Shown here is a 76-nucleotide RNA from Lipotes vexillifer, a member of the family "Small nucleolar RNA SNORD113/SNORD114 family". The match comes from Rfam's covariance-model search (66 bits). By type it is a C/D-box small nucleolar RNA. Rfam describes the family as follows. The imprinted human domain at 14q32 contains two clusters of tandemly repeated small nucleolar RNAs named 14q(I) and 14q(II) snoRNAs.
RNA sequence: UGGACCAGUGAUGAUGUAUGAUGGCAUAGGAGUCAUGGACGAUGGAACAAUUUGUGUCUGAAACUCAGAGGUCCAA
Numbered sequence: 001u002g003g004a005c006c007a008g009u010g011a012u013g014a015u016g017u018a019u020g021a022u023g024g025c026a027u028a029g030g031a032g033u034c035a036u037g038g039a040c041g042a043u044g045g046a047a048c049a050a051u052u053u054g055u056g057u058c059u060g061a062a063a064c065u066c067a068g069a070g071g072u073c074c075a076a
Stems, first nucleotide, its partner, number of pairs: 002074005
About this RNA
The family is grouped with related families in Rfam's "SNORD74 clan". The literature on the family includes a 2002 paper in Hum Mol Genet by Cavaille et al., "Identification of tandemly-repeated C/D snoRNA genes at the imprinted human 14q32 domain reminiscent of those at the Prader-Willi/Angelman syndrome region".